[Rfam]
RNA sequence: AUGUGAUGUGACAUGCCCGUUUGGGUUUUACUAUGAUAUUGAAUUAUUAUUAUUAUUUAAUUGAUUUGGAAAACGGGGUGUUACAAUCCU
Numbered sequence: 001a002u003g004u005g006a007u008g009u010g011a012c013a014u015g016c017c018c019g020u021u022u023g024g025g026u027u028u029u030a031c032u033a034u035g036a037u038a039u040u041g042a043a044u045u046a047u048u049a050u051u052a053u054u055a056u057u058u059a060a061u062u063g064a065u066u067u068g069g070a071a072a073a074c075g076g077g078g079u080g081u082u083a084c085a086a087u088c089c090u
Base pairs, nucleotide, nucleotide: 003090005088006087007085008084009083010082011081012080013079014078016077017076018075019074020073021072

A member of the RNA family "MIR2617 microRNA precursor family" from Medicago truncatula, 90 nucleotides long. Rfam links the family to the GO terms RISC complex and miRNA-mediated post-transcriptional gene silencing. Lineage of the source: Eukaryota > Spermatophyta > Gunneridae > Fabaceae > Medicago. A search with the family's covariance model found it, with a score of 51 bits.